[Rfam]
RNA sequence: UAAACUUAUUGGAUGAGAUUCCUAUCUUGGUGUGUUCAAUAUCCACUUGAAUGCUAAGAACCAAUCGUUUCUACAAGCAAGACUCCAUCAGCUAAGUUAAUUAAUUACUUUCUAAGACUACAUGGACUCA
Dot-bracket structure: ...(.((((..(.(...(......(.(((((....................................................................)))))..).....)...).)..)).)).)..

Shown here is a 130-nucleotide RNA sequence from Salix brachista, a member of the family "MIR480 microRNA precursor family". A reference for the family is Lu et al. (2005), "Novel and mechanical stress-responsive MicroRNAs in Populus trichocarpa that are absent from Arabidopsis", Plant Cell. The source organism's lineage runs through Eukaryota, Streptophyta, rosids, fabids and Salix.